[Rfam]
RNA: Bacillaceae-1 RNA
Nucleotides: 067
Stems, first nucleotide, its partner, number of pairs: 011049007025039005053067005
Number, partner (000 for none) and nucleotide at each position: 001000u002000g003000a004000g005000a006000a007000g008000g009000a010000u011049c012048a013047a014046a015045g016044g017043c018000u019000a020000a021000g022000a023000a024000c025039g026038c027037c028036a029035c030000g031000u032000c033000c034000u035029g036028u037027g038026g039025c040000a041000a042000c043017g044016c045015c046014u047013u048012u049011g050000u051000a052000a053067c054066c055065a056064a057063c058000g059000u060000c061000c062000u063057g064056u065055u066054g067053g